[Rfam]
RNA: Plastid-ycf3 group II-D1 intron
RNA sequence: AUUCUUUCCGUCGUGUAUCCUCGAUUGAUGCAAUCUCAGAUGCUUCA
Numbered sequence: 001a002u003u004c005u006u007u008c009c010g011u012c013g014u015g016u017a018u019c020c021u022c023g024a025u026u027g028a029u030g031c032a033a034u035c036u037c038a039g040a041u042g043c044u045u046c047a
Base pairs, nucleotide, nucleotide: 010025011024012023013022032044034042